[Rfam]
RNA sequence: UUAAGAAAAAUUAAAUGACCUCGUAUAACUGUGAAAAUAUGGUUCACAAGUCUCUACCGGAAAGCCGUAAACUAUCCGAACUACGGGGGGAGUGCACCUAGGG
Numbered sequence: 001u002u003a004a005g006a007a008a009a010a011u012u013a014a015a016u017g018a019c020c021u022c023g024u025a026u027a028a029c030u031g032u033g034a035a036a037a038u039a040u041g042g043u044u045c046a047c048a049a050g051u052c053u054c055u056a057c058c059g060g061a062a063a064g065c066c067g068u069a070a071a072c073u074a075u076c077c078g079a080a081c082u083a084c085g086g087g088g089g090g091a092g093u094g095c096a097c098c099u100a101g102g103g
Base pairs, nucleotide, nucleotide: 019088020087021086022085023084024083025082030048031047032046033045034044035043058078059077060076061075063073064072
Dot-bracket structure: ..................(((((((....((((((.......)))))).........((((.((.......)).))))...)))))))...............